A member of the RNA family "U1 spliceosomal RNA" from Capsicum baccatum, 161 nucleotides long. It is annotated as a spliceosomal small nuclear RNA. Rfam's curators write: U1 is a small nuclear RNA (snRNA) component of the spliceosome (involved in pre-mRNA splicing).

RNA sequence: CAUCCUAGCCGGACAGGGUCAAUGGGCGAUCAAGAAGGCCCAUGGUAUAGGUUGGUGACUUCCAUUGCACUUUGGAUGGGUGCCUGCCUAAGGUCAACCCAAGUAGUUGAGCCUACGUCUUAAUUUUUGGCAGUGGGGGCUUGUGUUAGCGCGCCCCCUAU
Numbered sequence: 001c002a003u004c005c006u007a008g009c010c011g012g013a014c015a016g017g018g019u020c021a022a023u024g025g026g027c028g029a030u031c032a033a034g035a036a037g038g039c040c041c042a043u044g045g046u047a048u049a050g051g052u053u054g055g056u057g058a059c060u061u062c063c064a065u066u067g068c069a070c071u072u073u074g075g076a077u078g079g080g081u082g083c084c085u086g087c088c089u090a091a092g093g094u095c096a097a098c099c100c101a102a103g104u105a106g107u108u109g110a111g112c113c114u115a116c117g118u119c120u121u122a123a124u125u126u127u128u129g130g131c132a133g134u135g136g137g138g139g140c141u142u143g144u145g146u147u148a149g150c151g152c153g154c155c156c157c158c159u160a161u
Base pairs, nucleotide, nucleotide: 012119013118014117016048018046019045020044021043023042024041025040026039027038049089050088051087053086055083056082057081059079060078062075063074091114092113093112094110095109096108098106134160135159136158137157138156142153143152144151145150